[Rfam]
Source information:
This 60-nucleotide RNA from Acetobacterium bakii belongs to the Rfam family "Fluoride riboswitch aptamer (crcB RNA motif)". Lineage of the source: Bacteria > Bacillati > Bacillota > Clostridia > Acetobacterium.
RNA sequence: AUUAACGAUGGUGAUGGAGUUCACCCAAAUUGCUACUUAGCUAAUGACUCCUGCAGGCUU
Numbered sequence: 001a002u003u004a005a006c007g008a009u010g011g012u013g014a015u016g017g018a019g020u021u022c023a024c025c026c027a028a029a030u031u032g033c034u035a036c037u038u039a040g041c042u043a044a045u046g047a048c049u050c051c052u053g054c055a056g057g058c059u060u
Stems, first nucleotide, its partner, number of pairs: 010025004016051006032041003